A member of the RNA family "BsrF" from Ornithinibacillus caprae, 112 nucleotides long. A search with the family's covariance model found it, with a score of 71 bits. On this family, see Saito et al., Gene 2008: "Novel small RNA-encoding genes in the intergenic regions of Bacillus subtilis". NCBI's taxonomy places the organism under Bacteria, Bacillota, Caryophanales, Bacillaceae, Ornithinibacillus.
RNA sequence: GCGAUGAGCUGAUUUGUGUAAGUCGAGGAAUAACGUAAUACAUGUGCAUGUGAACCACAUGAUUCUUCGCCACAAAUAUACGUAUAAAGAGACGUCUACUAAUAGGCGUCUC
Numbered sequence: 001g002c003g004a005u006g007a008g009c010u011g012a013u014u015u016g017u018g019u020a021a022g023u024c025g026a027g028g029a030a031u032a033a034c035g036u037a038a039u040a041c042a043u044g045u046g047c048a049u050g051u052g053a054a055c056c057a058c059a060u061g062a063u064u065c066u067u068c069g070c071c072a073c074a075a076a077u078a079u080a081c082g083u084a085u086a087a088a089g090a091g092a093c094g095u096c097u098a099c100u101a102a103u104a105g106g107c108g109u110c111u112c
Stems, first nucleotide, its partner, number of pairs: 014075005024069008041061002044058003089112009